[Rfam]
RNA: MIR319 microRNA precursor family
Nucleotides: 080
Base pairs, nucleotide, nucleotide: 007074008073009072010071011070012069013068014067015066016065017064018063021060022059024057025056026055027054028053
Number, partner (000 for none) and nucleotide at each position: 001000c002000a003000g004000a005000a006000a007074u008073g009072g010071g011070a012069g013068u014067u015066c016065c017064u018063u019000g020000c021060a022059g023000c024057c025056c026055a027054a028053a029000g030000c031000a032000g033000a034000g035000a036000a037000c038000u039000u040000c041000u042000u043000g044000c045000a046000a047000u048000g049000u050000u051000g052000u053028u054027u055026u056025g057024g058000a059022c060021u061000g062000a063018a064017g065016g066015g067014a068013g069012c070011u071010c072009c073008u074007a075000g076000u077000u078000c079000u080000u